[Rfam]
RNA sequence: AUUUUGAAUCAAUCGCUAUAUUUGCAAAAUAAUAUAGAGGAAACUCCACGCUUGCACAUCCUGUGAUGGAUGUAGUGUUUGUGCUAAAGGAAAAAAUAACUUUAGGCACCAAUUGGUGACGACUAGAGGUAAACCUAAGUGAAUUUAUUCAUAUGGUUGAAACUGUAAAGUGCCACAGGGACGAUUAGCUAGAAAUAGUGAAAUGGAACGGGUAAACUCCACAAGCAAGAAACUCAAAUUUUGGUAGAGGAGCUAGAGAAUAGAGAAUCGAAUCUAUUCUUUGGAUCACUCUUUAUGGGUGAUAGAUAGAUGAUUGAUGCGCGUAAGCGUUACAAAACGUGGGUUAUGAUA
Numbered sequence: 001a002u003u004u005u006g007a008a009u010c011a012a013u014c015g016c017u018a019u020a021u022u023u024g025c026a027a028a029a030u031a032a033u034a035u036a037g038a039g040g041a042a043a044c045u046c047c048a049c050g051c052u053u054g055c056a057c058a059u060c061c062u063g064u065g066a067u068g069g070a071u072g073u074a075g076u077g078u079u080u081g082u083g084c085u086a087a088a089g090g091a092a093a094a095a096a097u098a099a100c101u102u103u104a105g106g107c108a109c110c111a112a113u114u115g116g117u118g119a120c121g122a123c124u125a126g127a128g129g130u131a132a133a134c135c136u137a138a139g140u141g142a143a144u145u146u147a148u149u150c151a152u153a154u155g156g157u158u159g160a161a162a163c164u165g166u167a168a169a170g171u172g173c174c175a176c177a178g179g180g181a182c183g184a185u186u187a188g189c190u191a192g193a194a195a196u197a198g199u200g201a202a203a204u205g206g207a208a209c210g211g212g213u214a215a216a217c218u219c220c221a222c223a224a225g226c227a228a229g230a231a232a233c234u235c236a237a238a239u240u241u242u243g244g245u246a247g248a249g250g251a252g253c254u255a256g257a258g259a260a261u262a263g264a265g266a267a268u269c270g271a272a273u274c275u276a277u278u279c280u281u282u283g284g285a286u287c288a289c290u291c292u293u294u295a296u297g298g299g300u301g302a303u304a305g306a307u308a309g310a311u312g313a314u315u316g317a318u319g320c321g322c323g324u325a326a327g328c329g330u331u332a333c334a335a336a337a338c339g340u341g342g343g344u345u346a347u348g349a350u351a
Stems, first nucleotide, its partner, number of pairs: 004351001007347001008318007016037006042345003046342005051229005056073006079224005084105006106120001107118004121219002124167002127164001132158004139152005170217002172213003185202002188199004233249003253284007285303006320329003

The family of this 351-nucleotide RNA sequence from Spiroplasma culicicola is "Bacterial RNase P class B". By type it is a ribozyme. A search with the family's covariance model found it, with a score of 252 bits. From the family's description: Ribonuclease P (RNase P) is a ubiquitous endoribonuclease, found in archaea, bacteria and eukarya as well as chloroplasts and mitochondria. Its best characterised activity is the generation of mature 5'-ends of tRNAs by cleaving the 5'-leader elements of precursor-tRNAs. Cellular RNase Ps are ribonucleoproteins.